[Rfam]
RNA sequence: UAUUGGCUUAGUUAGGAGGCAAAGAUUAACUGACUAUUUAAUUGGUCUUCUCAGGCCUUUUGAGGGGACGCUCGGUUCCUGUUCGAUUGUCCCCCAAGCAGCCUUAGGGACAU
Numbered sequence: 001u002a003u004u005g006g007c008u009u010a011g012u013u014a015g016g017a018g019g020c021a022a023a024g025a026u027u028a029a030c031u032g033a034c035u036a037u038u039u040a041a042u043u044g045g046u047c048u049u050c051u052c053a054g055g056c057c058u059u060u061u062g063a064g065g066g067g068a069c070g071c072u073c074g075g076u077u078c079c080u081g082u083u084c085g086a087u088u089g090u091c092c093c094c095c096a097a098g099c100a101g102c103c104u105u106a107g108g109g110a111c112a113u
Stems, first nucleotide, its partner, number of pairs: 004021002007018003032047005050107002053104004059098004064094007072086001
Record summary: The family of this 113-nucleotide RNA sequence from Morella rubra is "Small nucleolar RNA U19". A reference for the family is Marker et al. (2002), "Experimental RNomics: identification of 140 candidates for small non-messenger RNAs in the plant Arabidopsis thaliana", Curr Biol. NCBI's taxonomy places the organism under Eukaryota, Streptophytina, Euphyllophyta, Spermatophyta, Morella. It is annotated as an H/ACA-box small nucleolar RNA.